[Rfam]
RNA sequence: GCGCUGGUUUAGCUCAGUGGUUACUUCCUACAACAAAUCUAUUUGAUUACGAUGUGUCUCCCUCGGAUUGAACCAUGGGCGCUGUCCAGCGUUUUG
Number, nucleotide and partner (000 for none) at each position: 001g000002c091003g090004c089005u088006g087007g086008u000009u000010u000011a000012g080013c079014u078015c077016a000017g076018u075019g074020g073021u000022u000023a000024c000025u072026u071027c070028c000029u000030a000031c000032a000033a000034c000035a000036a000037a000038u000039c000040u000041a000042u000043u000044u000045g000046a000047u000048u000049a000050c000051g000052a000053u000054g000055u000056g000057u000058c000059u000060c000061c000062c000063u000064c000065g000066g000067a000068u000069u000070g027071a026072a025073c020074c019075a018076u017077g015078g014079g013080c012081g000082c000083u000084g000085u000086c007087c006088a005089g004090c003091g002092u000093u000094u000095u000096g000
Shown here is a 96-nucleotide RNA sequence from Muraenolepis orangiensis, a member of the family "Vault RNA".
By type it is a non-coding RNA gene.
Rfam 15.1 lists 2,873 matches to the family in 431 species.
For this family Rfam cites "Evolution of Vault RNAs" (Stadler et al., Mol Biol Evol, 2009).